The family of this 57-nucleotide RNA from Ureibacillus manganicus is "Bacillaceae-1 RNA". Lineage of the source: Bacteria > Bacillati > Bacillota > Caryophanaceae > Ureibacillus manganicus. It is annotated as a small RNA. A search with the family's covariance model found it, with a score of 45 bits. Pairs were carried over by alignment from the consensus structure, which is taken from published work.
RNA sequence: UUGUCGCCUAGAACGCUACGUCCUGUAGCAGCAGCGACAUGACCAACUUCCUGUUGG
Numbered sequence: 001u002u003g004u005c006g007c008c009u010a011g012a013a014c015g016c017u018a019c020g021u022c023c024u025g026u027a028g029c030a031g032c033a034g035c036g037a038c039a040u041g042a043c044c045a046a047c048u049u050c051c052u053g054u055u056g057g
Stems, first nucleotide, its partner, number of pairs: 002039006015029005043057005